RNA sequence: CUAUUAGGUAGAGGUGCGAUAAUUAAGAGUACCAAAGGGGAGUUAAGCGCUGUGAAACUUUGGAAAAGGAUUUGUCGCCGAAAUAUAUAUCUUAUGCUUUAAGGAUGUAUAUUGGUGUUGCAUAUAAUAUGUGUAAGACUGUCACAAUUCUGUGGAGGGCUAUUAUUAAU
Number, nucleotide and partner (000 for none) at each position: 001c000002u000003a000004u000005u000006a000007g164008g163009u162010a161011g160012a000013g000014g000015u000016g078017c077018g076019a075020u074021a073022a072023u000024u070025a000026a000027g000028a000029g000030u000031a000032c063033c062034a061035a060036a059037g058038g000039g000040g000041a000042g000043u000044u000045a000046a000047g000048c000049g000050c000051u000052g000053u000054g000055a000056a000057a000058c037059u036060u035061u034062g033063g032064a000065a000066a000067a000068g000069g000070a024071u000072u022073u021074g020075u019076c018077g017078c016079c000080g000081a000082a113083a112084u111085a110086u109087a108088u107089a106090u105091c104092u103093u102094a000095u000096g000097c000098u000099u000100u000101a000102a093103g092104g091105a090106u089107g088108u087109a086110u085111a084112u083113u082114g140115g139116u138117g000118u136119u135120g134121c133122a132123u131124a130125u000126a000127a000128u000129a000130u124131g123132u122133g121134u120135a119136a118137g000138a116139c115140u114141g000142u155143c154144a153145c152146a151147a000148u000149u000150c000151u146152g145153u144154g143155g142156a000157g000158g000159g000160c011161u010162a009163u008164u007165a000166u000167u000168a000169a000170u000
The family of this 170-nucleotide sequence from Clostridium grantii is "Lysine riboswitch aptamer". A search with the family's covariance model found it, with a score of 107 bits. The base pairs follow the family's consensus structure, which is taken from published work.